RNA sequence: GAAAUCCCAUUUGGUAAGGUCUAGCCAACCACCAAUAGCGACCUUGAACAUGCGUUGGUAACAGCGUAGGUUAAGCGUAGGAAGUUAGGCGAUAGGGUCAUAAGGCAUGUUAGCCCCGAAAUAAAUUAAGAUGGUGUGCCGACGUAAUUAAGCGAUGCGGAAGGCAACACGCGUGCAAUUGCUAAUGGCGAAGAUUGCCGCGACGCCACGGGGUUGAGAGUC
Numbered sequence: 001g002a003a004a005u006c007c008c009a010u011u012u013g014g015u016a017a018g019g020u021c022u023a024g025c026c027a028a029c030c031a032c033c034a035a036u037a038g039c040g041a042c043c044u045u046g047a048a049c050a051u052g053c054g055u056u057g058g059u060a061a062c063a064g065c066g067u068a069g070g071u072u073a074a075g076c077g078u079a080g081g082a083a084g085u086u087a088g089g090c091g092a093u094a095g096g097g098u099c100a101u102a103a104g105g106c107a108u109g110u111u112a113g114c115c116c117c118g119a120a121a122u123a124a125a126u127u128a129a130g131a132u133g134g135u136g137u138g139c140c141g142a143c144g145u146a147a148u149u150a151a152g153c154g155a156u157g158c159g160g161a162a163g164g165c166a167a168c169a170c171g172c173g174u175g176c177a178a179u180u181g182c183u184a185a186u187g188g189c190g191a192a193g194a195u196u197g198c199c200g201c202g203a204c205g206c207c208a209c210g211g212g213g214u215u216g217a218g219a220g221u222c
Base pairs, nucleotide, nucleotide: 011035012034013033014032018030019029020028022191024189025188038085039084042081043080044079045077046076047072048071049070051068052067053066054065055064056063057062110216113214114213115212116211117210118209132208133207134206135205136204137203138165139164140163143159144158145157146156170202171201172200173199177195179193180192

A member of the RNA family "Group II catalytic intron D1-D4-6" from Butyrivibrio proteoclasticus, 222 nucleotides long. The pairing is the family consensus, mapped onto this sequence. Its family is annotated with Group II intron splicing in the Gene Ontology.